[Rfam]
Nucleotides: 084
Stems, first nucleotide, its partner, number of pairs: 001084001003082006011031005021070005033052001034047002037044001057076005
Number, partner (000 for none) and nucleotide at each position: 001084g002000u003082u004081a005080u006079u007078u008077g009000a010000a011031g012030u013029g014028g015027a016000c017000a018000a019000u020000a021070g022069u023068g024067c025066c026000a027015u028014c029013c030012a031011c032000a033052c034047a035046c036000a037044u038000u039000u040000a041000a042000a043000a044037g045000g046035g047034u048000a049000a050000a051000a052033g053000a054000g055000a056000u057076g058075c059074a060073g061072g062000a063000c064000u065000u066025g067024g068023c069022a070021c071000a072061c073060c074059u075058g076057c077008c078007a079006a080005a081004u082003a083000u084001c

Annotation:
The family of this 84-nucleotide RNA sequence is "skipping-rope RNA". Pairs were carried over by alignment from the consensus structure, which is taken from published work. By type it is a small RNA. It is one of the family's seed sequences.